[Rfam]
RNA sequence: UUCAACUUGUCGGAGUGCCUUAAUUGGCUGAGAUCGCAUUUUAAUGCGGGAUCCGCAGAACCUGAUCAGGCUAAUACCUGCGAAGGGAACAAGAAAGAACCUUUU
Number, nucleotide and partner (000 for none) at each position: 001u000002u000003c000004a000005a000006c093007u092008u091009g090010u089011c055012g054013g053014a052015g000016u049017g028018c027019c026020u000021u000022a000023a000024u000025u000026g019027g018028c017029u000030g000031a000032g000033a000034u000035c048036g047037c046038a045039u044040u000041u000042u000043a000044a039045u038046g037047c036048g035049g016050g000051a000052u014053c013054c012055g011056c000057a000058g000059a000060a000061c086062c085063u084064g000065a000066u000067c080068a079069g078070g077071c000072u000073a000074a000075u000076a000077c070078c069079u068080g067081c000082g000083a000084a063085g062086g061087g000088a000089a010090c009091a008092a007093g006094a000095a000096a000097g000098a000099a000100c000101c000102u000103u000104u000105u000
A member of the RNA family "TPP riboswitch aptamer (THI element)" from Marinomonas piezotolerans, 105 nucleotides long. The organism belongs to Marinomonas, within Bacteria. A search with the family's covariance model found it, with a score of 82 bits.